[Rfam]
RNA sequence: GUUCGGUUCCGGGCCCCUCUGGCGGCCGAGGCGUCGGCCGUGAUGUCGGACACCGCU
Numbered sequence: 001g002u003u004c005g006g007u008u009c010c011g012g013g014c015c016c017c018u019c020u021g022g023c024g025g026c027c028g029a030g031g032c033g034u035c036g037g038c039c040g041u042g043a044u045g046u047c048g049g050a051c052a053c054c055g056c057u
Stems, first nucleotide, its partner, number of pairs: 006051002009049004022041008
Shown here is a 57-nucleotide RNA sequence from Azospirillum thermophilum, a member of the family "terC RNA". Rfam classes the family as a cis-regulatory element. The match comes from Rfam's covariance-model search (57 bits).